[Rfam]
RNA sequence: AGGGCUAGUCGAAAGACUCUGGUCCACCGGCUGACGGGGAUUUACCCC
Numbered sequence: 001a002g003g004g005c006u007a008g009u010c011g012a013a014a015g016a017c018u019c020u021g022g023u024c025c026a027c028c029g030g031c032u033g034a035c036g037g038g039g040a041u042u043u044a045c046c047c048c
Stems, first nucleotide, its partner, number of pairs: 002025005007018004
Notes: The record is a 48-nucleotide RNA, which matches "DUF3800-XI RNA" in Rfam. Actinobacteria, Firmicutes, Proteobacteria, Spirochaetes (1 example).